[Rfam]
RNA sequence: UUGGCCUGAUGUGACUGGCGACAGAAGUGGGUUAACCACGGUGGAGCAUCAGGCAAUACGGCCGGUCGCCUGGGCAGAGCAC
Numbered sequence: 001u002u003g004g005c006c007u008g009a010u011g012u013g014a015c016u017g018g019c020g021a022c023a024g025a026a027g028u029g030g031g032u033u034a035a036c037c038a039c040g041g042u043g044g045a046g047c048a049u050c051a052g053g054c055a056a057u058a059c060g061g062c063c064g065g066u067c068g069c070c071u072g073g074g075c076a077g078a079g080c081a082c
Stems, first nucleotide, its partner, number of pairs: 004054009015043001017070005027039004059077001061075003

Description: Rfam assigns this 82-nucleotide RNA sequence from Insulibacter thermoxylanivorax to the family "ZMP/ZTP riboswitch aptamer (pfl RNA motif)". Pairs were carried over by alignment from the consensus structure, which is taken from published work.